Small nucleolar RNA snoR138: a 135-nucleotide sequence from Cephalotus follicularis. Its family is annotated with nucleolus and RNA processing in the Gene Ontology. Rfam 15.1 lists 308 matches to the family in 168 species. The family's RNA type in Rfam is H/ACA-box small nucleolar RNA. Pairs were carried over by alignment from the consensus structure, which was predicted with mfold. NCBI's taxonomy places the organism under Eukaryota, Streptophytina, Spermatophyta, Mesangiospermae, Cephalotus. A reference for the family is Chen and Wu (2009), "Mining small RNA sequencing data: a new approach to identify small nucleolar RNAs in Arabidopsis", Nucleic Acids Res.
RNA sequence: UUUGCCUCUUGAAUAACCAGAAGGUAUUAUUACACGACAUCAUUUGGUUCAGACAGAGGCAUACAACAACCCCCAAAUCCGUUUGAGGGAAAGGAACCCAUCCUCCGUUACUUUCCUAGAUAGAUUUGUACAUUU
Number, nucleotide and partner (000 for none) at each position: 001u000002u000003u061004g060005c059006c058007u057008c000009u056010u000011g000012a000013a000014u000015a049016a048017c047018c046019a045020g044021a043022a000023g000024g040025u039026a000027u000028u000029a000030u000031u000032a000033c000034a000035c000036g000037a000038c000039a025040u024041c000042a000043u021044u020045u019046g018047g017048u016049u015050c000051a000052g000053a000054c000055a000056g009057a007058g006059g005060c004061a003062u000063a000064c000065a000066a000067c000068a000069a000070c000071c000072c000073c000074c128075a127076a126077a125078u124079c123080c000081g000082u119083u118084u000085g000086a117087g116088g115089g000090a114091a000092a000093g111094g000095a109096a108097c107098c000099c000100a000101u000102c000103c000104u000105c000106c000107g097108u096109u095110a000111c093112u000113u000114u090115c088116c087117u086118a083119g082120a000121u000122a000123g079124a078125u077126u076127u075128g074129u000130a000131c000132a000133u000134u000135u000